[Rfam]
RNA sequence: CGCCUUGCAGGGCAACCUGCCGGGUGAUGAGGCAGAAGUCAGCAGACGCCAUAGUAGUCUCGCCGGUGGCGUGACGAAGGGC
Numbered sequence: 001c002g003c004c005u006u007g008c009a010g011g012g013c014a015a016c017c018u019g020c021c022g023g024g025u026g027a028u029g030a031g032g033c034a035g036a037a038g039u040c041a042g043c044a045g046a047c048g049c050c051a052u053a054g055u056a057g058u059c060u061c062g063c064c065g066g067u068g069g070c071g072u073g074a075c076g077a078a079g080g081g082c
Stems, first nucleotide, its partner, number of pairs: 001026002004023002007020005038047003048082003057075003061071002
Record summary: Rfam assigns this 82-nucleotide RNA sequence to the family "Group II catalytic intron D1-D4-1". Rfam describes the family as follows. Group II introns are found in rRNA, tRNA and mRNA of organelles in fungi, plants and protists, and also in mRNA in bacteria. Its family is annotated with Group II intron splicing in the Gene Ontology. The sequence is in the family's curated seed alignment. The base pairs follow the family's consensus structure.